RNA sequence: ACUCAUACCUCGGGGAGCCUGCUGUAGGCUGAGAUGCGUUCUGCAAACCCGCUGAACCUGAACCGGUUAGAACCGGCGGAGGGAAGGUGGCCUCGUUACAU
Numbered sequence: 001a002c003u004c005a006u007a008c009c010u011c012g013g014g015g016a017g018c019c020u021g022c023u024g025u026a027g028g029c030u031g032a033g034a035u036g037c038g039u040u041c042u043g044c045a046a047a048c049c050c051g052c053u054g055a056a057c058c059u060g061a062a063c064c065g066g067u068u069a070g071a072a073c074c075g076g077c078g079g080a081g082g083g084a085a086g087g088u089g090g091c092c093u094c095g096u097u098a099c100a101u
Base pairs, nucleotide, nucleotide: 006089007088008087009086010085011051012050013049014048017029018028019027020026021025036044037043038042057082058081059080063076064075065074066073